[Rfam]
RNA sequence: AUGCUACUAUAUUUUAAAGCUUAUAUAUCGUCAUGAUAGGGAUGACAGUUUCUACCUUGUGCCGUAAACGCAAGACUAUAAGCAAAAAUCGUACGUUU
Numbered sequence: 001a002u003g004c005u006a007c008u009a010u011a012u013u014u015u016a017a018a019g020c021u022u023a024u025a026u027a028u029c030g031u032c033a034u035g036a037u038a039g040g041g042a043u044g045a046c047a048g049u050u051u052c053u054a055c056c057u058u059g060u061g062c063c064g065u066a067a068a069c070g071c072a073a074g075a076c077u078a079u080a081a082g083c084a085a086a087a088a089u090c091g092u093a094c095g096u097u098u
Base pairs, nucleotide, nucleotide: 019083020082021081022080023079024078025077030046031045032044033043034042056074057073058072059071060070061069
This 98-nucleotide sequence from Enterococcus pallens belongs to the Rfam family "Purine riboswitch aptamer". Taxonomically the source falls in Enterococcus pallens (Bacteria, Bacillati, Bacillota, Enterococcus). It scores 66 bits against the family's covariance model. For this family Rfam cites "Riboswitches Control Fundamental Biochemical Pathways in Bacillus subtilis and Other Bacteria" (Mandal et al., Cell, 2003). The base pairs follow the family's consensus structure, which is taken from published work.